[Rfam]
RNA: Rhodo-rpoB RNA
RNA sequence: UCAUCGGGAGGCAUUCGGUGGGACGGAUGCCACGAAUAGAUGAAACCCCCCUCUCAAUGGGAGAGUCUCGCGUUCCCGGCGGCGGCUC
Numbered sequence: 001u002c003a004u005c006g007g008g009a010g011g012c013a014u015u016c017g018g019u020g021g022g023a024c025g026g027a028u029g030c031c032a033c034g035a036a037u038a039g040a041u042g043a044a045a046c047c048c049c050c051c052u053c054u055c056a057a058u059g060g061g062a063g064a065g066u067c068u069c070g071c072g073u074u075c076c077c078g079g080c081g082g083c084g085g086c087u088c
Stems, first nucleotide, its partner, number of pairs: 001043005010031008063088005068082003